[Rfam]
RNA sequence: GCCGGUCCUCGGUAGUGGCCAUCGGAUUCAUGUGAUCCGCGGGCUUCGAUCGAAGACCGGC
Numbered sequence: 001g002c003c004g005g006u007c008c009u010c011g012g013u014a015g016u017g018g019c020c021a022u023c024g025g026a027u028u029c030a031u032g033u034g035a036u037c038c039g040c041g042g043g044c045u046u047c048g049a050u051c052g053a054a055g056a057c058c059g060g061c
Stems, first nucleotide, its partner, number of pairs: 001061007009053005017045004023039006
The family of this 61-nucleotide RNA sequence from Actinocorallia herbida is "Actino-pnp RNA". Rfam classes the family as a cis-regulatory element. NCBI's taxonomy places the organism under Bacteria, Actinomycetes, Streptosporangiales, Thermomonosporaceae, Actinocorallia.